[Rfam]
RNA sequence: UUGGUUUAAUCUCAGCUGGCAACUGUGAGAUGUCCCUAUCAUUCCUCACAGUGGUCUCUGGGAUUAUGCUAA
Numbered sequence: 001u002u003g004g005u006u007u008a009a010u011c012u013c014a015g016c017u018g019g020c021a022a023c024u025g026u027g028a029g030a031u032g033u034c035c036c037u038a039u040c041a042u043u044c045c046u047c048a049c050a051g052u053g054g055u056c057u058c059u060g061g062g063a064u065u066a067u068g069c070u071a072a
Base pairs, nucleotide, nucleotide: 001072002071003070004069005068007066008065009064010063011062012061013060014059015058018056019055020054021052024050025049026048027047028046029045